Overview:
The family of this 125-nucleotide RNA sequence from Tilletia walkeri is "U5 spliceosomal RNA". The match comes from Rfam's covariance-model search (46 bits). By type it is a spliceosomal small nuclear RNA. Gene Ontology terms of the family: U5 snRNP and spliceosomal tri-snRNP complex assembly.

RNA sequence: CGGCACUGUGGGCAGGCAAAUCCGUAAACUUAUCCUCUGCCUUUUACUGACGAUAACAGUUUUCUGCCCACGCCAAAGUGCUGUGACUAUCCAAUUUUUCUUCUUCCCUUUUUCUCAAUGCGCAA
Numbered sequence: 001c002g003g004c005a006c007u008g009u010g011g012g013c014a015g016g017c018a019a020a021u022c023c024g025u026a027a028a029c030u031u032a033u034c035c036u037c038u039g040c041c042u043u044u045u046a047c048u049g050a051c052g053a054u055a056a057c058a059g060u061u062u063u064c065u066g067c068c069c070a071c072g073c074c075a076a077a078g079u080g081c082u083g084u085g086a087c088u089a090u091c092c093a094a095u096u097u098u099u100c101u102u103c104u105u106c107c108c109u110u111u112u113u114c115u116c117a118a119u120g121c122g123c124a125a
Base pairs, nucleotide, nucleotide: 003081004080005079006078009070010069011068012067013066014065015064016063018061019060030056031055032054033053034052036050037049102125104124106122108120